[Rfam]
RNA sequence: AGAAUCGAGUGUAAAAACACGGUCCGGUUGGUAGUCCGGGCGCAUUCGCUUCCGCAAUGAAUAUCGCUGAUGCGGAUGUCAGUAACCUUCCCCCCUCGGGAUGUCCCUCACUCGAAGUCAAUUG
Numbered sequence: 001a002g003a004a005u006c007g008a009g010u011g012u013a014a015a016a017a018c019a020c021g022g023u024c025c026g027g028u029u030g031g032u033a034g035u036c037c038g039g040g041c042g043c044a045u046u047c048g049c050u051u052c053c054g055c056a057a058u059g060a061a062u063a064u065c066g067c068u069g070a071u072g073c074g075g076a077u078g079u080c081a082g083u084a085a086c087c088u089u090c091c092c093c094c095c096u097c098g099g100g101a102u103g104u105c106c107c108u109c110a111c112u113c114g115a116a117g118u119c120a121a122u123u124g
Base pairs, nucleotide, nucleotide: 005115006114007113008112009111010110011109022041023040024039025038026037027036042079043078044077045076046075047074048073049072089101090100091099092098
The family of this 124-nucleotide sequence from Paenibacillus dendritiformis is "azaaromatic riboswitch aptamer (yjdF RNA)". Taxonomically the source falls in Paenibacillus dendritiformis (Bacteria, Bacillota, Bacilli, Paenibacillaceae).